RNA sequence: CGCAGGGACUUCUGUCGUUGGAGAGAUGGCGCCAAAUGCAUGAAGAUUACUGACUGUAAAUGAUAUUUAUAGUUACUAUAUAUGCAGCGGGCUUCAUCUCUCUUCGACUGAAGCCCCUCGGUUC
Dot-bracket structure: ....(((.((((.((((..((.(((((((................................................................))))))).)).)))).)))))))........
Annotation:
Shown here is a 124-nucleotide RNA sequence from Rosa chinensis, a member of the family "MIR5225 microRNA precursor family". Rfam links the family to the GO terms RISC complex and miRNA-mediated post-transcriptional gene silencing. The organism belongs to Rosa, within Eukaryota. It scores 88 bits against the family's covariance model. The family's consensus secondary structure was predicted with RNAalifold.